[Rfam]
RNA sequence: AAAUUUGUUCUCUAGGGUUCCGCCACACGGGUCUGGUCCGAGAGAGAACCUGCGGGUCAGUCCGUAGACACGGAAGGGAAAAAGCCUGGGAGAU
Numbered sequence: 001a002a003a004u005u006u007g008u009u010c011u012c013u014a015g016g017g018u019u020c021c022g023c024c025a026c027a028c029g030g031g032u033c034u035g036g037u038c039c040g041a042g043a044g045a046g047a048a049c050c051u052g053c054g055g056g057u058c059a060g061u062c063c064g065u066a067g068a069c070a071c072g073g074a075a076g077g078g079a080a081a082a083a084g085c086c087u088g089g090g091a092g093a094u
Base pairs, nucleotide, nucleotide: 007049008048009047010046011045012044015039016038020036021035022033023030024029050067051066052065053064054063055062056061069089071092075087076086077085
Notes: A member of the RNA family "Guanidine-I riboswitch aptamer" from Levilactobacillus brevis, 94 nucleotides long. Lineage of the source: Bacteria > Bacilli > Lactobacillales > Levilactobacillus > Levilactobacillus brevis. Rfam 15.1 lists 1,509 matches to the family in 1,281 species.